[Rfam]
Nucleotides: 046
Stems, first nucleotide, its partner, number of pairs: 006021006
Number, partner (000 for none) and nucleotide at each position: 001000c002000c003000a004000a005000c006021g007020g008019c009018u010017c011016u012000u013000u014000u015000a016011a017010g018009a019008g020007c021006c022000a023000c024000c025000c026000a027000u028000c029000c030000u031000u032000u033000c034000c035000c036000a037000a038000a039000a040000g041000g042000a043000g044000c045000u046000u
A member of the RNA family "Histone 3' UTR stem-loop" from Pelodiscus sinensis, 46 nucleotides long. The source organism's lineage runs through Eukaryota, Chordata, Amniota, Trionychia and Pelodiscus. Its family is annotated with mRNA 3'-end processing by stem-loop binding and cleavage in the Gene Ontology. Rfam classes the family as a cis-regulatory element.